RNA sequence: GGGAGCUGGUUUCACGUGGUGGCUUAGACUGUGAUGUGCCUUCUCUAGCACCAUAUGAAAUCGGUGUCCC
Numbered sequence: 001g002g003g004a005g006c007u008g009g010u011u012u013c014a015c016g017u018g019g020u021g022g023c024u025u026a027g028a029c030u031g032u033g034a035u036g037u038g039c040c041u042u043c044u045c046u047a048g049c050a051c052c053a054u055a056u057g058a059a060a061u062c063g064g065u066g067u068c069c070c
Base pairs, nucleotide, nucleotide: 001070002069003068004067005065006064007063008062009061010060011059012058013057014056016054017053018052019051020050021049025047026046027045028044

mir-29 microRNA precursor family: a 70-nucleotide sequence from Petromyzon marinus.
It is one of the family's seed sequences.
Taxonomically the source falls in Petromyzon (Eukaryota, Opisthokonta, Deuterostomia, Cyclostomata).
Rfam 15.1 lists 3,328 matches to the family in 787 species.
About the family: This family represents the microRNA (miRNA) precursors mir-29.
Its family is annotated with RISC complex and gene silencing by miRNA in the Gene Ontology.